The record is a 136-nucleotide RNA from Aurantimonas sp. Leaf443, which matches "speF leader" in Rfam. Its family is annotated with regulation of gene expression in the Gene Ontology. It scores 64 bits against the family's covariance model. The family's consensus secondary structure was predicted with RNAalifold. A reference for the family is del Val et al. (2012), "A survey of sRNA families in alpha-proteobacteria", RNA Biol. By type it is a cis-regulatory leader. Taxonomically the source falls in Aurantimonas (Bacteria, Pseudomonadota, Hyphomicrobiales, Aurantimonadaceae).

RNA sequence: CUCCUGGUCUCCAAAGCCGGGAAUACUGAAGAGGCACACCAUCCUUGCCUGAAGUGCGGCGGGUCCAAGCCCUCCAAGCCAUGGCAGACUAACCGAGACGGACGCGUCGCGUUCGCAUCGGCUAUCGUCGCGUCUC
Numbered sequence: 001c002u003c004c005u006g007g008u009c010u011c012c013a014a015a016g017c018c019g020g021g022a023a024u025a026c027u028g029a030a031g032a033g034g035c036a037c038a039c040c041a042u043c044c045u046u047g048c049c050u051g052a053a054g055u056g057c058g059g060c061g062g063g064u065c066c067a068a069g070c071c072c073u074c075c076a077a078g079c080c081a082u083g084g085c086a087g088a089c090u091a092a093c094c095g096a097g098a099c100g101g102a103c104g105c106g107u108c109g110c111g112u113u114c115g116c117a118u119c120g121g122c123u124a125u126c127g128u129c130g131c132g133u134c135u136c
Stems, first nucleotide, its partner, number of pairs: 002022007033049004056133003084094001104116003